[Rfam]
Shown here is a 97-nucleotide sequence from Streptomyces sp. SID4985, a member of the family "Bacterial small signal recognition particle RNA". Rfam's curators write: The signal recognition particle (SRP) is a universally conserved ribonucleoprotein involved in the co-translational targeting of proteins to membranes. It is annotated as a non-coding RNA gene. Its family is annotated with signal recognition particle, plasma membrane targeting and SRP-dependent cotranslational protein targeting to membrane, signal sequence recognition in the Gene Ontology. A reference for the family is Rosenblad et al. (2003), "SRPDB: Signal Recognition Particle Database", Nucleic Acids Res. A search with the family's covariance model found it, with a score of 68 bits.

Nucleotides: 097
Base pairs, nucleotide, nucleotide: 005090006089007088008087009086010085011084012083013082014081015078018076019075020074021073022072024068025067026066027065028064029063035060036059037058043052044051045050
Number, partner (000 for none) and nucleotide at each position: 001000g002000g003000c004000a005090g006089c007088c008087c009086c010085c011084c012083a013082c014081g015078c016000g017000g018076u019075g020074c021073u022072a023000u024068c025067u026066g027065a028064c029063u030000g031000a032000a033000c034000u035060c036059c037058c038000c039000c040000a041000g042000g043052g044051c045050c046000g047000g048000a049000a050045g051044g052043c053000a054000g055000c056000a057000a058037g059036g060035g061000u062000a063029g064028g065027u066026c067025g068024g069000c070000u071000c072022u073021g074020g075019c076018a077000g078015g079000u080000g081014c082013g083012u084011g085010g086009g087008g088007g089006g090005c091000c092000c093000u094000u095000g096000u097000u